[Rfam]
RNA sequence: CGGUCCGAGGAGCGUUGCGACGGGGUGAACCCGCCAGGCUCGGAACGGUCCGGCCCGGCCGGACGACGCAACGACGCUCACCGACC
Numbered sequence: 001c002g003g004u005c006c007g008a009g010g011a012g013c014g015u016u017g018c019g020a021c022g023g024g025g026u027g028a029a030c031c032c033g034c035c036a037g038g039c040u041c042g043g044a045a046c047g048g049u050c051c052g053g054c055c056c057g058g059c060c061g062g063a064c065g066a067c068g069c070a071a072c073g074a075c076g077c078u079c080a081c082c083g084a085c086c
Stems, first nucleotide, its partner, number of pairs: 002046001004044005021033004